A member of the RNA family "Small nucleolar RNA Z157/R69/R10" from Oryza sativa, 99 nucleotides long. The family's RNA type in Rfam is C/D-box small nucleolar RNA. Taxonomically the source falls in Oryza sativa (Eukaryota, Tracheophyta, Liliopsida, Poaceae).

[Rfam]
RNA sequence: AUGGGAGUGAUGAAGAACAAUUUUUAUUUGGACUAGAGUUUCUGAUACUGCUACUUUGUGGUAGUUGAAGACUAAACCCUUGGCUGUCUGAACUUCCAU
Numbered sequence: 001a002u003g004g005g006a007g008u009g010a011u012g013a014a015g016a017a018c019a020a021u022u023u024u025u026a027u028u029u030g031g032a033c034u035a036g037a038g039u040u041u042c043u044g045a046u047a048c049u050g051c052u053a054c055u056u057u058g059u060g061g062u063a064g065u066u067g068a069a070g071a072c073u074a075a076a077c078c079c080u081u082g083g084c085u086g087u088c089u090g091a092a093c094u095u096c097c098a099u
Stems, first nucleotide, its partner, number of pairs: 001099007039070004046063006

Source information: Rfam links the family to the GO terms nucleolus and RNA processing. The family's consensus secondary structure was predicted with PFOLD.